[Rfam]
RNA sequence: AGCCUGUGAUGAGCCUGGCUCUUAUUCUGACAUCUCCAAGGAAAGUUGCAUUAAAGCAAUGCUUGAUUAUUAUUUUGUGGCUGAGGCUU
Dot-bracket structure: ((((........................................(((((......)))))........................)))).
Shown here is an 89-nucleotide RNA sequence from Scyliorhinus torazame, a member of the family "Small nucleolar RNA SNORD60". Rfam 15.1 lists 825 matches to the family in 373 species. Rfam links the family to the GO terms RNA processing and nucleolus. A reference for the family is Galardi et al. (2002), "Purified box C/D snoRNPs are able to reproduce site-specific 2'-O-methylation of target RNA in vitro", Mol Cell Biol. A search with the family's covariance model found it, with a score of 50 bits.